[Rfam]
RNA sequence: UCAGAAGUUCAAGGCCAAUACAGAAGUGCUUAUGACAUGGCCUGUCAGAUUCCAAUGAAUCUGCAAAAUCUGUU
Numbered sequence: 001u002c003a004g005a006a007g008u009u010c011a012a013g014g015c016c017a018a019u020a021c022a023g024a025a026g027u028g029c030u031u032a033u034g035a036c037a038u039g040g041c042c043u044g045u046c047a048g049a050u051u052c053c054a055a056u057g058a059a060u061c062u063g064c065a066a067a068a069u070c071u072g073u074u
Stems, first nucleotide, its partner, number of pairs: 013042004020073005026038003046063007